[Rfam]
RNA: Small nucleolar RNA SNORA72
RNA sequence: CAGCAGGAGCUGGGAACUUGUUAGAAACGCAGUUUCCAGCCUACACACUGGCGAUGUUAAGACCAUGCCAGUGUCGCCAGGCCCUGGUCCUUCCCCAGGUCUGGUUUUAUAAAUGCCGGGGAUAAAC
Numbered sequence: 001c002a003g004c005a006g007g008a009g010c011u012g013g014g015a016a017c018u019u020g021u022u023a024g025a026a027a028c029g030c031a032g033u034u035u036c037c038a039g040c041c042u043a044c045a046c047a048c049u050g051g052c053g054a055u056g057u058u059a060a061g062a063c064c065a066u067g068c069c070a071g072u073g074u075c076g077c078c079a080g081g082c083c084c085u086g087g088u089c090c091u092u093c094c095c096c097a098g099g100u101c102u103g104g105u106u107u108u109a110u111a112a113a114u115g116c117c118g119g120g121g122a123u124a125a126a127c
Base pairs, nucleotide, nucleotide: 001050010039011038012037013036014035015034016033017032018031019029020028063119064118067116068115077104078103079102080101081100082099083098086095